The record is an 86-nucleotide RNA from Thalassiosira oceanica, which matches "Selenocysteine transfer RNA" in Rfam.
[Rfam]
RNA sequence: GUGUGGAUGAUCCUGACUGGUGUUGGGUACUGGCUUCAAACCAGUGGGCGUCUAGCGACGCAGUGGUUCGAUUCCACCUUUCGCAC
Numbered sequence: 001g002u003g004u005g006g007a008u009g010a011u012c013c014u015g016a017c018u019g020g021u022g023u024u025g026g027g028u029a030c031u032g033g034c035u036u037c038a039a040a041c042c043a044g045u046g047g048g049c050g051u052c053u054a055g056c057g058a059c060g061c062a063g064u065g066g067u068u069c070g071a072u073u074c075c076a077c078c079u080u081u082c083g084c085a086c
Stems, first nucleotide, its partner, number of pairs: 001086007009078001012027006028046006048061005063077004

For this family Rfam cites "tRNAscan-SE: a program for improved detection of transfer RNA genes in genomic sequence" (Lowe and Eddy, Nucleic Acids Res, 1997). The base pairs follow the family's consensus structure, which is taken from published work. The match comes from Rfam's covariance-model search (77 bits). The source organism's lineage runs through Eukaryota, Ochrophyta, Bacillariophyta, Thalassiosiraceae and Thalassiosira.